[Rfam]
Nucleotides: 072
Base pairs, nucleotide, nucleotide: 002071003070004069006067007066008065009064010063011062012061013060014059015058016057017056018055020054021053023051024050025049026048027047028046029045030044031043
Number, partner (000 for none) and nucleotide at each position: 001000c002071u003070g004069a005000g006067g007066u008065c009064c010063u011062c012061a013060a014059a015058a016057c017056u018055g019000a020054g021053g022000g023051g024050c025049a026048u027047u028046u029045u030044c031043u032000g033000u034000g035000g036000u037000u038000u039000g040000a041000a042000a043031g044030g045029a046028a047027a048026g049025u050024g051023c052000a053021c054020c055018c056017a057016g058015u059014u060013u061012u062011g063010g064009g065008g066007a067006u068000g069004u070003c071002a072000a